[Rfam]
RNA sequence: ACUUAACAACAAAACUGGUUUUCCCAUUGGUCUGGCAGAUAUUUCAUAUUCUGAGAUCAUUGUGAAAACUGAUUUUGUACC
Numbered sequence: 001a002c003u004u005a006a007c008a009a010c011a012a013a014a015c016u017g018g019u020u021u022u023c024c025c026a027u028u029g030g031u032c033u034g035g036c037a038g039a040u041a042u043u044u045c046a047u048a049u050u051c052u053g054a055g056a057u058c059a060u061u062g063u064g065a066a067a068a069c070u071g072a073u074u075u076u077g078u079a080c081c
Stems, first nucleotide, its partner, number of pairs: 009078006016071008025062001028059006
A member of the RNA family "bantam microRNA precursor family" from Biomphalaria glabrata, 81 nucleotides long. Rfam 15.1 lists 182 matches to the family in 182 species. Its Rfam clan is "mir-81 clan". Its family is annotated with RISC complex and miRNA-mediated post-transcriptional gene silencing in the Gene Ontology. Taxonomically the source falls in Biomphalaria (Eukaryota, Protostomia, Lophotrochozoa, Panpulmonata). The family's consensus secondary structure was predicted with RNAalifold. A reference for the family is Weaver et al. (2007), "Computational and transcriptional evidence for microRNAs in the honey bee genome", Genome Biol.